[Rfam]
RNA sequence: UAAUAUAUUAAUAAUACAUCCUUAUCUAGUUAUGAUAGACCCAUAUCUAAUUGUUCAAAAUCACUCAUGAGAAUUACUAUAUAAACAAUAAUUUUUUAAAAA
Dot-bracket structure: ...(.((....(.((...(...(((.(((((........................................)))))..)))..)...)).).....)).)..
Numbered sequence: 001u002a003a004u005a006u007a008u009u010a011a012u013a014a015u016a017c018a019u020c021c022u023u024a025u026c027u028a029g030u031u032a033u034g035a036u037a038g039a040c041c042c043a044u045a046u047c048u049a050a051u052u053g054u055u056c057a058a059a060a061u062c063a064c065u066c067a068u069g070a071g072a073a074u075u076a077c078u079a080u081a082u083a084a085a086c087a088a089u090a091a092u093u094u095u096u097u098a099a100a101a102a
Stems, first nucleotide, its partner, number of pairs: 004100001006098002012091001014089002019084001023081003027076005